[Rfam]
RNA sequence: UUUUGGAGAUGGUGAUUUAUAUCAGAGACAGGCUGUUUCUGAGGAUGAGCCUCAAGCUCACUGAGUGCUGCAGAGAAACUGUUUUGCCGAUAUUGGUUCCAAUC
Numbered sequence: 001u002u003u004u005g006g007a008g009a010u011g012g013u014g015a016u017u018u019a020u021a022u023c024a025g026a027g028a029c030a031g032g033c034u035g036u037u038u039c040u041g042a043g044g045a046u047g048a049g050c051c052u053c054a055a056g057c058u059c060a061c062u063g064a065g066u067g068c069u070g071c072a073g074a075g076a077a078a079c080u081g082u083u084u085u086g087c088c089g090a091u092a093u094u095g096g097u098u099c100c101a102a103u104c
Stems, first nucleotide, its partner, number of pairs: 003102005046060005070087005
Background: The family of this 104-nucleotide sequence from Zizania palustris is "Small nucleolar RNA Z119". The family's consensus secondary structure was predicted with PFOLD. The literature on the family includes a 2003 paper in Nucleic Acids Res by Chen et al., "The high diversity of snoRNAs in plants: identification and comparative study of 120 snoRNA genes from Oryza sativa". The family's RNA type in Rfam is C/D-box small nucleolar RNA.